The family of this 71-nucleotide RNA from Lunatimonas lonarensis is "DUF805 RNA". The match comes from Rfam's covariance-model search (65 bits). The family has 46 seed sequences and 281 matches in Rfam 15.1. The family's RNA type in Rfam is cis-regulatory element. The family is grouped with related families in Rfam's "DUF805 clan". Pairs were carried over by alignment from the consensus structure, which is taken from published work.
RNA sequence: AUAAAGUGGAGUCCAGCAACCAUUCGGUUCAAACGGGGCGUAUUCCGAAAAGCCAUACGAGUAGGAGUUGU
Numbered sequence: 001a002u003a004a005a006g007u008g009g010a011g012u013c014c015a016g017c018a019a020c021c022a023u024u025c026g027g028u029u030c031a032a033a034c035g036g037g038g039c040g041u042a043u044u045c046c047g048a049a050a051a052g053c054c055a056u057a058c059g060a061g062u063a064g065g066a067g068u069u070g071u
Stems, first nucleotide, its partner, number of pairs: 006023004037054003044065002